[Rfam]
RNA sequence: CAUUUUGCCAACGGGGGCUCGCACCAGCGGGCUGAGAGGACGGCUAGCCCAAUCGGGCGGAUCGAGGGCCGUCGACCGUACGAACCUGACCGGGUAAUGCCGGCGUAGGGAGGAUGGAUCUCACAUGU
Numbered sequence: 001c002a003u004u005u006u007g008c009c010a011a012c013g014g015g016g017g018c019u020c021g022c023a024c025c026a027g028c029g030g031g032c033u034g035a036g037a038g039g040a041c042g043g044c045u046a047g048c049c050c051a052a053u054c055g056g057g058c059g060g061a062u063c064g065a066g067g068g069c070c071g072u073c074g075a076c077c078g079u080a081c082g083a084a085c086c087u088g089a090c091c092g093g094g095u096a097a098u099g100c101c102g103g104c105g106u107a108g109g110g111a112g113g114a115u116g117g118a119u120c121u122c123a124c125a126u127g128u
Stems, first nucleotide, its partner, number of pairs: 006116002009113001011079004016073001017032005040072006085109004090103004
Dot-bracket structure: .....((.(.((((.((((((......))))).......((((((.....................)))))))..)))).....((((.((((......))))..))))...).))............
TPP riboswitch aptamer (THI element): a 128-nucleotide RNA from Nocardia nova.
Rfam's curators write: Vitamin B(1) in its active form thiamin pyrophosphate (TPP) is an essential coenzyme that is synthesised by coupling of pyrimidine and thiazole moieties in bacteria.